[Rfam]
RNA sequence: GGGUUCGGUCACGCCAAGGUCGGUGGCUACAACUUCAAACCGCCACCUGCUGCGUUGGCUGAAGACCGUCGUGGUGAGCGAGGUGGAAAAGGCGCUGUUCAAGUGUCAGGU
Numbered sequence: 001g002g003g004u005u006c007g008g009u010c011a012c013g014c015c016a017a018g019g020u021c022g023g024u025g026g027c028u029a030c031a032a033c034u035u036c037a038a039a040c041c042g043c044c045a046c047c048u049g050c051u052g053c054g055u056u057g058g059c060u061g062a063a064g065a066c067c068g069u070c071g072u073g074g075u076g077a078g079c080g081a082g083g084u085g086g087a088a089a090a091g092g093c094g095c096u097g098u099u100c101a102a103g104u105g106u107c108a109g110g111u
Stems, first nucleotide, its partner, number of pairs: 001014001003012002017035004023030002041110001043086006049075002052072003056068003091107006